[Rfam]
Shown here is a 186-nucleotide RNA sequence from Metabacillus arenae, a member of the family "6S / SsrS RNA". The family has 150 seed sequences and 5,006 matches in Rfam 15.1. By type it is a non-coding RNA gene. NCBI's taxonomy places the organism under Bacteria, Bacillati, Bacilli, Caryophanales, Metabacillus. A search with the family's covariance model found it, with a score of 87 bits.
RNA sequence: CAGAAGCUGCGUUGUACGUAAUGAUAAUAAAGUUUUAACCUUUAAGCUGAUAUAGGGAGUUUUACAUUGAAACCGGAAUGUCAUGCCUCCACGCAAGAGGACGACAGGAUUGUUUCUGCAAACACCCACUUUGAGGAGUGGUGGUUUAAAACUUUCUUACGUUCAUACGGCAAAUGCAGCUCCUUA
Numbered sequence: 001c002a003g004a005a006g007c008u009g010c011g012u013u014g015u016a017c018g019u020a021a022u023g024a025u026a027a028u029a030a031a032g033u034u035u036u037a038a039c040c041u042u043u044a045a046g047c048u049g050a051u052a053u054a055g056g057g058a059g060u061u062u063u064a065c066a067u068u069g070a071a072a073c074c075g076g077a078a079u080g081u082c083a084u085g086c087c088u089c090c091a092c093g094c095a096a097g098a099g100g101a102c103g104a105c106a107g108g109a110u111u112g113u114u115u116c117u118g119c120a121a122a123c124a125c126c127c128a129c130u131u132u133g134a135g136g137a138g139u140g141g142u143g144g145u146u147u148a149a150a151a152c153u154u155u156c157u158u159a160c161g162u163u164c165a166u167a168c169g170g171c172a173a174a175u176g177c178a179g180c181u182c183c184u185u186a
Base pairs, nucleotide, nucleotide: 002184003183005181006180007179008178009177010176011175012173013172014171015170017169018168019167031153032152033151034150036148037147038146039144040143055127056126057125059123060122061121062120066117069116070115071114072113073112080105081104086100087099088098089097